[Rfam]
RNA: Selenocysteine transfer RNA
Organism: Argiope bruennichi
RNA sequence: GCCCAGAUGAGCAUCGGUGGGCCGAUGUGCGGGCUUCAAACCCCUAGCUUGGGGAAUCAGGGGUGGUUUAAUUCCACCGUUUUGGGC
Number, nucleotide and partner (000 for none) at each position: 001g087002c086003c085004c084005a083006g082007a080008u079009g078010a000011g000012c027013a026014u025015c024016g023017g022018u000019g000020g000021g000022c017023c016024g015025a014026u013027g012028u046029g045030c000031g043032g042033g041034c000035u000036u000037c000038a000039a000040a000041c033042c032043c031044c000045u029046a028047g000048c061049u060050u059051g058052g057053g000054g000055a000056a000057u052058c051059a050060g049061g048062g000063g077064u076065g075066g074067u000068u000069u000070a000071a000072u000073u000074c066075c065076a064077c063078c009079g008080u007081u000082u006083u005084g004085g003086g002087c001